Notes:
This 81-nucleotide RNA sequence from Novipirellula galeiformis belongs to the Rfam family "Group II catalytic intron D1-D4-1". Pairs were carried over by alignment from the consensus structure. Taxonomically the source falls in Novipirellula (Bacteria, Planctomycetota, Planctomycetia, Pirellulales).
[Rfam]
RNA sequence: GCCGUGCAUUGGAAAGUUACUCGGUGCCAACUGGAAGUCAGCAGAGGGCAUCGUAGUUGUCCCACGCGGUCAGCGAAGGCC
Dot-bracket structure: ((.(.(.(((....)).).).).))............((....)).(((......((((.(.......).))))....)))